The record is a 97-nucleotide sequence from Novacetimonas maltaceti, which matches "Bacterial small signal recognition particle RNA" in Rfam. Rfam describes the family as follows. The signal recognition particle (SRP) is a universally conserved ribonucleoprotein involved in the co-translational targeting of proteins to membranes. A search with the family's covariance model found it, with a score of 56 bits. It is annotated as a non-coding RNA gene.
[Rfam]
RNA sequence: GAAGAUCGGCCGUAGACGGGUACCUUGCCAACCCGGUCAGGUCCGGAAGGAAGCAGCCGCAGUGAGUUUCGCUCGGGUUAUGUGUCCGGUCUUCCAC
Numbered sequence: 001g002a003a004g005a006u007c008g009g010c011c012g013u014a015g016a017c018g019g020g021u022a023c024c025u026u027g028c029c030a031a032c033c034c035g036g037u038c039a040g041g042u043c044c045g046g047a048a049g050g051a052a053g054c055a056g057c058c059g060c061a062g063u064g065a066g067u068u069u070c071g072c073u074c075g076g077g078u079u080a081u082g083u084g085u086c087c088g089g090u091c092u093u094c095c096a097c
Stems, first nucleotide, its partner, number of pairs: 004091005011082004017075005024066005034059004042051003